[Rfam]
RNA sequence: GCCGGGUGUGGUGGCGCGCGCCUGUAAUCCGCGCUCAUGGAGGCUGAGGCUGGAGGAUGGUUGGAGCUCAGGAGCUCUGAGCUGCAGUGGACUGUGCUGAUCGGGUGUCCGCACUGAGUUCGGUACCGAUAUGGUCUUUCUGGGGGAGCCCGGGGAGACCAGGUCGUCUAAGGACGGGUGAACCGGCCCAGGCCGGAAACGGAGCAGGUCAAAGCCCGCGUGCCGCUCAGCAGUGGGAUCACACCUGAGAGUAGACGCUGUAGCACAGCCUGAGGAAACAUCCAGACCCAGACUUUU
Numbered sequence: 001g002c003c004g005g006g007u008g009u010g011g012u013g014g015c016g017c018g019c020g021c022c023u024g025u026a027a028u029c030c031g032c033g034c035u036c037a038u039g040g041a042g043g044c045u046g047a048g049g050c051u052g053g054a055g056g057a058u059g060g061u062u063g064g065a066g067c068u069c070a071g072g073a074g075c076u077c078u079g080a081g082c083u084g085c086a087g088u089g090g091a092c093u094g095u096g097c098u099g100a101u102c103g104g105g106u107g108u109c110c111g112c113a114c115u116g117a118g119u120u121c122g123g124u125a126c127c128g129a130u131a132u133g134g135u136c137u138u139u140c141u142g143g144g145g146g147a148g149c150c151c152g153g154g155g156a157g158a159c160c161a162g163g164u165c166g167u168c169u170a171a172g173g174a175c176g177g178g179u180g181a182a183c184c185g186g187c188c189c190a191g192g193c194c195g196g197a198a199a200c201g202g203a204g205c206a207g208g209u210c211a212a213a214g215c216c217c218g219c220g221u222g223c224c225g226c227u228c229a230g231c232a233g234u235g236g237g238a239u240c241a242c243a244c245c246u247g248a249g250a251g252u253a254g255a256c257g258c259u260g261u262a263g264c265a266c267a268g269c270c271u272g273a274g275g276a277a278a279c280a281u282c283c284a285g286a287c288c289c290a291g292a293c294u295u296u297u
Stems, first nucleotide, its partner, number of pairs: 001044003004023007028041003046295003050291004058284003062280002067274006077268003081264009092254004097249001101248008109237002112235005118228001121225006127166004132161013167173002175218005185210004193202003
Dot-bracket structure: ((((((((((......)))))))....(((........)))))).(((.((((....(((.((...((((((....(((.(((((((((..((((.(...((((((((((.(((((.(..((((((((((.(((((((((((((....))))))))))))).))))((...)).(((((.....((((....(((....)))....))))...))))).))))))..)..)))))))...))))))))).)))).))))))))).)))))))))....)).)))...)))).)))..
The record is a 297-nucleotide sequence from Oryzias latipes, which matches "Metazoan signal recognition particle RNA" in Rfam.
The match comes from Rfam's covariance-model search (253 bits).
Rfam describes the family as follows. The signal recognition particle (SRP) is a universally conserved ribonucleoprotein. It is involved in the co-translational targeting of proteins to membranes.
The family's consensus secondary structure is taken from published work.
Taxonomically the source falls in Oryzias (Eukaryota, Chordata, Euteleosteomorpha, Oryziinae).
The family's RNA type in Rfam is non-coding RNA gene.